Notes
Shown here is a 120-nucleotide RNA from Streptococcus pasteurianus, a member of the family "PyrR binding site". The literature on the family includes a 2001 paper in Nucleic Acids Res by Bonner et al., "Molecular recognition of pyr mRNA by the Bacillus subtilis attenuation regulatory protein PyrR". The organism belongs to Streptococcus pasteurianus, within Bacteria. Rfam classes the family as a cis-regulatory element.
RNA sequence: UUAUCCUUUAAUACUGUCCUGUGAGGCAGGCAAGGAGAGAACGGUAAAAGAAGUGUGCAACUGGCAUAGUUGUACCUAUAUUUUGUGGAAUCUCCUUGGUAACGAGGAGCUUUUUUGUAU
Numbered sequence: 001u002u003a004u005c006c007u008u009u010a011a012u013a014c015u016g017u018c019c020u021g022u023g024a025g026g027c028a029g030g031c032a033a034g035g036a037g038a039g040a041a042c043g044g045u046a047a048a049a050g051a052a053g054u055g056u057g058c059a060a061c062u063g064g065c066a067u068a069g070u071u072g073u074a075c076c077u078a079u080a081u082u083u084u085g086u087g088g089a090a091u092c093u094c095c096u097u098g099g100u101a102a103c104g105a106g107g108a109g110c111u112u113u114u115u116u117g118u119a120u
Stems, first nucleotide, its partner, number of pairs: 004036005014029005047083003051079001053077001055075008087114004092109007